The family of this 58-nucleotide RNA sequence from Leifsonia tongyongensis is "msiK RNA". The family's RNA type in Rfam is cis-regulatory element. The organism belongs to Leifsonia, within Bacteria. A search with the family's covariance model found it, with a score of 63 bits. The base pairs follow the family's consensus structure, which is taken from published work.
[Rfam]
RNA sequence: CACCAUAUCCAUUCACUACGGAUCGUCCGGCACGUACCUGCCGGUGAAGGAGCAAUUC
Number, nucleotide and partner (000 for none) at each position: 001c000002a000003c000004c000005a000006u000007a000008u000009c050010c049011a000012u048013u047014c046015a045016c000017u000018a000019c000020g000021g000022a000023u000024c000025g000026u000027c044028c043029g042030g041031c040032a039033c000034g000035u000036a000037c000038c000039u032040g031041c030042c029043g028044g027045u015046g014047a013048a012049g010050g009051a000052g000053c000054a000055a000056u000057u000058c000